[Rfam]
RNA sequence: UAUAUAGGGUAUGUAGUGGAUGCCUUGGCACUGGCAGGCGAUGAAGGACGUGGUAAGCUGCGAUAAGUCUCGGAUAGCCGCAAACAGGCUUUGACCCGGGAAUUUCCGAAUGGGAUAACCUGAUGUAAUUCAUUUUACAUCGUUCCGCUCUGAACAAAAUAGGAGCGGAGACGCUAAACCACCUGAAGUGAAACAUCUCAGUAAGGUGAGGAAAAGAAAGCGAAAGCGAUUCCGUCAGUAGUGGCGAACGAAAGCGGAACAGCCCAAACCGGAGGAUUUAUCUUCCGGGGUUGUAGGGGCCCGACAUGGCAGUUGAAGAGUUAGGUGAAGCGUAUGGAAAGGCGCUCCACAGAGGGUGAGAGACCCGUAACCGAAAACUCAACAACGCCUAGGGAUUCCCUGAGUAAUACGAUACACGUGAAACUUCGUAUGAAUCUGUGCCGACCACGGCAUAAGGCUAAAUACUCGCCAGUGACCGACAGUGAACAAGUACCGCGAGGGAAAGGUGAAAAGAUCCGCCGUGAGCGAAGUGAAAUAGUACCUGAAACCACAUACCUACAAGGUGUCAGAGCCGGCUUGUCCGGUGAUGGCGUG
Dot-bracket structure: ......((((((((.(.....(((..(((((((((((((......((((((........))).....((((((...(((.......)))......))))))...)))....(((....)))(((((((......))))))).(((((((((..........))))))).)).))....((((((.....((....))......))))).).........((....))..((((((.....((.....))....)))))..((((....(((((((......)))))))......(((..(((.........((((..(((((.(((...((((........))))..(...).(((.......)))...)))...)))))..)))).....)))....))).....((((((.............))))))......(((((......)))))..))))..)..)).))))))).))...............((....))....))..........(((.....)))..............).....).)))))))).......((((..(((((.....)))))..))))...
Numbered sequence: 001u002a003u004a005u006a007g008g009g010u011a012u013g014u015a016g017u018g019g020a021u022g023c024c025u026u027g028g029c030a031c032u033g034g035c036a037g038g039c040g041a042u043g044a045a046g047g048a049c050g051u052g053g054u055a056a057g058c059u060g061c062g063a064u065a066a067g068u069c070u071c072g073g074a075u076a077g078c079c080g081c082a083a084a085c086a087g088g089c090u091u092u093g094a095c096c097c098g099g100g101a102a103u104u105u106c107c108g109a110a111u112g113g114g115a116u117a118a119c120c121u122g123a124u125g126u127a128a129u130u131c132a133u134u135u136u137a138c139a140u141c142g143u144u145c146c147g148c149u150c151u152g153a154a155c156a157a158a159a160u161a162g163g164a165g166c167g168g169a170g171a172c173g174c175u176a177a178a179c180c181a182c183c184u185g186a187a188g189u190g191a192a193a194c195a196u197c198u199c200a201g202u203a204a205g206g207u208g209a210g211g212a213a214a215a216g217a218a219a220g221c222g223a224a225a226g227c228g229a230u231u232c233c234g235u236c237a238g239u240a241g242u243g244g245c246g247a248a249c250g251a252a253a254g255c256g257g258a259a260c261a262g263c264c265c266a267a268a269c270c271g272g273a274g275g276a277u278u279u280a281u282c283u284u285c286c287g288g289g290g291u292u293g294u295a296g297g298g299g300c301c302c303g304a305c306a307u308g309g310c311a312g313u314u315g316a317a318g319a320g321u322u323a324g325g326u327g328a329a330g331c332g333u334a335u336g337g338a339a340a341g342g343c344g345c346u347c348c349a350c351a352g353a354g355g356g357u358g359a360g361a362g363a364c365c366c367g368u369a370a371c372c373g374a375a376a377a378c379u380c381a382a383c384a385a386c387g388c389c390u391a392g393g394g395a396u397u398c399c400c401u402g403a404g405u406a407a408u409a410c411g412a413u414a415c416a417c418g419u420g421a422a423a424c425u426u427c428g429u430a431u432g433a434a435u436c437u438g439u440g441c442c443g444a445c446c447a448c449g450g451c452a453u454a455a456g457g458c459u460a461a462a463u464a465c466u467c468g469c470c471a472g473u474g475a476c477c478g479a480c481a482g483u484g485a486a487c488a489a490g491u492a493c494c495g496c497g498a499g500g501g502a503a504a505g506g507u508g509a510a511a512a513g514a515u516c517c518g519c520c521g522u523g524a525g526c527g528a529a530g531u532g533a534a535a536u537a538g539u540a541c542c543u544g545a546a547a548c549c550a551c552a553u554a555c556c557u558a559c560a561a562g563g564u565g566u567c568a569g570a571g572c573c574g575g576c577u578u579g580u581c582c583g584g585u586g587a588u589g590g591c592g593u594g
Stems, first nucleotide, its partner, number of pairs: 007557008016548001022542001023506002027477002029474007036466002038174002046107003049062003068101006077089003112121003122141007143171002145168007179210001180208005190197002220227002230462001231258005241249002261459004269288007295401003300394003312386004318380005324372003330345004348352001354366003407431006438453005493500002517527003565591004571585005
This 594-nucleotide part of an RNA from Prosthecobacter gellanilyticus belongs to the Rfam family "Bacterial large subunit ribosomal RNA". The organism belongs to Prosthecobacter, within Bacteria. Rfam 15.1 lists 51,934 matches to the family in 10,816 species.